[Rfam]
RNA sequence: UGAUAUGUUCGUAGUGUAGCGAACAGUAUAAUCAAAAGAAAUACACAAACAGA
Numbered sequence: 001u002g003a004u005a006u007g008u009u010c011g012u013a014g015u016g017u018a019g020c021g022a023a024c025a026g027u028a029u030a031a032u033c034a035a036a037a038g039a040a041a042u043a044c045a046c047a048a049a050c051a052g053a
Base pairs, nucleotide, nucleotide: 006025007024008023009022010021011020014046015045016044017043
Dot-bracket structure: .....((((((..[[[[..)))))).................]]]].......
This 53-nucleotide RNA belongs to the Rfam family "6A RNA". The base pairs follow the family's consensus structure, which is taken from published work. The sequence is in the family's curated seed alignment.